[Rfam]
RNA sequence: AUAACUUAAUGAUGAACAAUAACUUUCGCCCCUAACUGAAAACUAAUUUCAUGUUGAAUGCGAUUUGAUUGGUCUUACUGAGUUAAUAUU
Numbered sequence: 001a002u003a004a005c006u007u008a009a010u011g012a013u014g015a016a017c018a019a020u021a022a023c024u025u026u027c028g029c030c031c032c033u034a035a036c037u038g039a040a041a042a043c044u045a046a047u048u049u050c051a052u053g054u055u056g057a058a059u060g061c062g063a064u065u066u067g068a069u070u071g072g073u074c075u076u077a078c079u080g081a082g083u084u085a086a087u088a089u090u
Base pairs, nucleotide, nucleotide: 001087002085003084004083005082006081

Rfam assigns this 90-nucleotide RNA from Ceratitis capitata to the family "Small nucleolar RNA Me28S-Gm1083".
The match comes from Rfam's covariance-model search (67 bits).
The source organism's lineage runs through Eukaryota, Protostomia, Pterygota, Ceratitis and Ceratitis.
The family has 11 seed sequences and 97 matches in Rfam 15.1.
For this family Rfam cites "Genome-wide analyses of two families of snoRNA genes from Drosophila melanogaster, demonstrating the extensive utilization of introns for coding of snoRNAs" (Huang et al., RNA, 2005).